[Rfam]
RNA sequence: GAGUCUAACAUGUGCGCGAGUCACGGGGUUCUACGAAACCUAAGGGCGCAAUGAAGGUGAAGGCUCUCGUAGGAGUGCCGAGGUGGGAAGCCGUCCCUCCGGGGCGGCGGCACCACCGGCCCGUCCUGAUCGCUCGUCGAUGGGGCGGAGCAAGAGCGUACACGUUGGGACCCGAAAGGCGGUGAGCUAUGCGUGAGCAGGACGAAGUCAGAGGAAACUCUGAUGGAAGUCCGUAGCGAUUCUGACGUGCAAAUCGAUCGUCAAACUUGCGUAUAGGGGCGAAAGACUAAUCGAACCGUCUAGUAGCUGGUU
Numbered sequence: 001g002a003g004u005c006u007a008a009c010a011u012g013u014g015c016g017c018g019a020g021u022c023a024c025g026g027g028g029u030u031c032u033a034c035g036a037a038a039c040c041u042a043a044g045g046g047c048g049c050a051a052u053g054a055a056g057g058u059g060a061a062g063g064c065u066c067u068c069g070u071a072g073g074a075g076u077g078c079c080g081a082g083g084u085g086g087g088a089a090g091c092c093g094u095c096c097c098u099c100c101g102g103g104g105c106g107g108c109g110g111c112a113c114c115a116c117c118g119g120c121c122c123g124u125c126c127u128g129a130u131c132g133c134u135c136g137u138c139g140a141u142g143g144g145g146c147g148g149a150g151c152a153a154g155a156g157c158g159u160a161c162a163c164g165u166u167g168g169g170a171c172c173c174g175a176a177a178g179g180c181g182g183u184g185a186g187c188u189a190u191g192c193g194u195g196a197g198c199a200g201g202a203c204g205a206a207g208u209c210a211g212a213g214g215a216a217a218c219u220c221u222g223a224u225g226g227a228a229g230u231c232c233g234u235a236g237c238g239a240u241u242c243u244g245a246c247g248u249g250c251a252a253a254u255c256g257a258u259c260g261u262c263a264a265a266c267u268u269g270c271g272u273a274u275a276g277g278g279g280c281g282a283a284a285g286a287c288u289a290a291u292c293g294a295a296c297c298g299u300c301u302a303g304u305a306g307c308u309g310g311u312u
Base pairs, nucleotide, nucleotide: 005168006167007166008165009164011162012161013160014159015158016157017156020047021046022045026041027040028039029038030037051058052057082117083116084115085114086113090108091107092106093105094104119151120150121148122147123146124144125143126142171310172309174307178300179299180298181297182296183295187276188275189274190273191272192271193270194269195268196267197266200232201231202230203229207224208223209222210221211220212219213218236261237260238259239258241257242256244255245254278288279287
Shown here is a 312-nucleotide part of an RNA from Owenia fusiformis, a member of the family "Eukaryotic large subunit ribosomal RNA".